Betaproteobacteria toxic small RNA: a 64-nucleotide sequence from Allobrachymonas denitrificans.
Nucleotides: 064
Base pairs, nucleotide, nucleotide: 008028009027010026011025012024013023033057034056035055036054037053038052039051040050
Number, partner (000 for none) and nucleotide at each position: 001000u002000g003000u004000c005000u006000c007000c008028u009027c010026c011025a012024c013023c014000c015000u016000c017000c018000u019000a020000u021000c022000a023013g024012g025011u026010g027009g028008a029000u030000u031000c032000a033057g034056c035055c036054c037053c038052a039051a040050g041000u042000c043000c044000a045000c046000a047000a048000g049000a050040c051039u052038u053037g054036g055035g056034g057033c058000u059000u060000u061000u062000u063000u064000u

Notes:
Rfam's curators write: Overexpression in amino aid rich medium attenuates growth, suggesting role in repressing amino acid intake and metabolism.